[Rfam]
The family of this 156-nucleotide RNA from Populus deltoides is "MIR2912 microRNA precursor family".
The match comes from Rfam's covariance-model search (128 bits).
RNA sequence: UCUAGAACUUGAGAUAUGGGCUGAACACUGAACCGUGUCUGGGCUGUAGGACAAAUUCUGACUUCUCUUUUGUUGCUACCGUUUGAACUUGUAAACAGCCUUUUUGAAUCUUGGCCUCUUUAUGAAAGUUUUAGGCCUAUGUCUUAACUUUCCAUC
Numbered sequence: 001u002c003u004a005g006a007a008c009u010u011g012a013g014a015u016a017u018g019g020g021c022u023g024a025a026c027a028c029u030g031a032a033c034c035g036u037g038u039c040u041g042g043g044c045u046g047u048a049g050g051a052c053a054a055a056u057u058c059u060g061a062c063u064u065c066u067c068u069u070u071u072g073u074u075g076c077u078a079c080c081g082u083u084u085g086a087a088c089u090u091g092u093a094a095a096c097a098g099c100c101u102u103u104u105u106g107a108a109u110c111u112u113g114g115c116c117u118c119u120u121u122a123u124g125a126a127a128g129u130u131u132u133a134g135g136c137c138u139a140u141g142u143c144u145u146a147a148c149u150u151u152c153c154a155u156c
Stems, first nucleotide, its partner, number of pairs: 003154001005152003009146001011145010021134005027129003035123003041119003048112004054105002060099001062098002069091001072088003
Pairs were carried over by alignment from the consensus structure, which was predicted with RNAalifold.